[Rfam]
RNA sequence: GCCGGGAAGUGGAAAAAAGAGGGCAUAAGAGCAGUGGGAGUGGGAACAUGGAGGAAAGCCUAACUUGCUUUGUUUCAUCUUUAGUGUUGGAGGUGGGAACUUGCUUGGUGUUUCCCAAUGGCUCUCAUUCCUAUUGUUCUCAAGCACUCCUCCCUCUUCCUUUUUUGG
Numbered sequence: 001g002c003c004g005g006g007a008a009g010u011g012g013a014a015a016a017a018a019g020a021g022g023g024c025a026u027a028a029g030a031g032c033a034g035u036g037g038g039a040g041u042g043g044g045a046a047c048a049u050g051g052a053g054g055a056a057a058g059c060c061u062a063a064c065u066u067g068c069u070u071u072g073u074u075u076c077a078u079c080u081u082u083a084g085u086g087u088u089g090g091a092g093g094u095g096g097g098a099a100c101u102u103g104c105u106u107g108g109u110g111u112u113u114c115c116c117a118a119u120g121g122c123u124c125u126c127a128u129u130c131c132u133a134u135u136g137u138u139c140u141c142a143a144g145c146a147c148u149c150c151u152c153c154c155u156c157u158u159c160c161u162u163u164u165u166u167g168g
Stems, first nucleotide, its partner, number of pairs: 009159001011157003017151001019149003024144001026142001028140006035133011047120003051116001053115002056113004
This 168-nucleotide sequence from Triticum urartu belongs to the Rfam family "MIR2118 microRNA precursor family".
The family's consensus secondary structure was predicted with RNAalifold.
Its family is annotated with miRNA-mediated post-transcriptional gene silencing and RISC complex in the Gene Ontology.